[Rfam]
RNA: tRNA
Organism: Corynebacterium pseudotuberculosis
RNA sequence: UCCUCCAUAGCUCAAUUGGCAGAGCAUUCGACUGUUAAUCGAAGGGUUACUGGUUCGAGUCCAGUUGGAGGAG
Numbered sequence: 001u002c003c004u005c006c007a008u009a010g011c012u013c014a015a016u017u018g019g020c021a022g023a024g025c026a027u028u029c030g031a032c033u034g035u036u037a038a039u040c041g042a043a044g045g046g047u048u049a050c051u052g053g054u055u056c057g058a059g060u061c062c063a064g065u066u067g068g069a070g071g072a073g
Stems, first nucleotide, its partner, number of pairs: 001072007010025004027043005049065005
Dot-bracket structure: (((((((..((((........)))).(((((.......))))).....(((((.......)))))))))))).